[Rfam]
RNA sequence: AAGGAUAUUCGGCAAACUUAUUGAAAAAUAAGGGCGCAAAGCUAUGGGUCUACGGACUUUUUGUCUAUGAUUGCCAGGUUGCUCCA
Numbered sequence: 001a002a003g004g005a006u007a008u009u010c011g012g013c014a015a016a017c018u019u020a021u022u023g024a025a026a027a028a029u030a031a032g033g034g035c036g037c038a039a040a041g042c043u044a045u046g047g048g049u050c051u052a053c054g055g056a057c058u059u060u061u062u063g064u065c066u067a068u069g070a071u072u073g074c075c076a077g078g079u080u081g082c083u084c085c086a
Base pairs, nucleotide, nucleotide: 012037013036017032018031019030020029021028022027040080041079042078043077045076046075047074048071049070050069055065056064057063